[Rfam]
RNA sequence: UCUGGAGUAGAGAAUAAAGCGUUAAGUGCCGAUGGAACGGAAUGUGAACAUUGGACGAAAAGUAAUUUUGCUUGCGGUUUUAUUCUCGCAUUCGCCACG
Dot-bracket structure: (.(((....(((((((((((((...((.((((((.....[[[[[....))))))))...((((......))))))).)))))))))).]]]]].))).)
Numbered sequence: 001u002c003u004g005g006a007g008u009a010g011a012g013a014a015u016a017a018a019g020c021g022u023u024a025a026g027u028g029c030c031g032a033u034g035g036a037a038c039g040g041a042a043u044g045u046g047a048a049c050a051u052u053g054g055a056c057g058a059a060a061a062g063u064a065a066u067u068u069u070g071c072u073u074g075c076g077g078u079u080u081u082a083u084u085c086u087c088g089c090a091u092u093c094g095c096c097a098c099g
Stems, first nucleotide, its partner, number of pairs: 001099001003097003010087010020076003026056002029054006040093005060073004